RNA sequence: UCUGCGUGAAAGACAUGGGUAGUGAGAUGUUUACAUCUCACGGAGCACUCCCGUCUCACUACCUUGUCUUUCAUGUGGCG
Numbered sequence: 001u002c003u004g005c006g007u008g009a010a011a012g013a014c015a016u017g018g019g020u021a022g023u024g025a026g027a028u029g030u031u032u033a034c035a036u037c038u039c040a041c042g043g044a045g046c047a048c049u050c051c052c053g054u055c056u057c058a059c060u061a062c063c064u065u066g067u068c069u070u071u072c073a074u075g076u077g078g079c080g
Stems, first nucleotide, its partner, number of pairs: 008072008017064003021060009
Dot-bracket structure: .......((((((((.(((.(((((((((......................))))))))).)))))))))))........
RNA: mir-71 microRNA precursor family